The family of this 41-nucleotide RNA from Betta splendens is "MAT2A 3'UTR stem loop D". Rfam classes the family as a cis-regulatory element. The literature on the family includes a 2011 paper in Genome Res by Parker et al., "New families of human regulatory RNA structures identified by comparative analysis of vertebrate genomes". The organism belongs to Betta, within Eukaryota. The family's consensus secondary structure is taken from published work.
RNA sequence: UCUGAAACAUGGCGUGGAUACAGAGUAGCUCAUGUUUCAGA
Numbered sequence: 001u002c003u004g005a006a007a008c009a010u011g012g013c014g015u016g017g018a019u020a021c022a023g024a025g026u027a028g029c030u031c032a033u034g035u036u037u038c039a040g041a
Stems, first nucleotide, its partner, number of pairs: 001041008011030003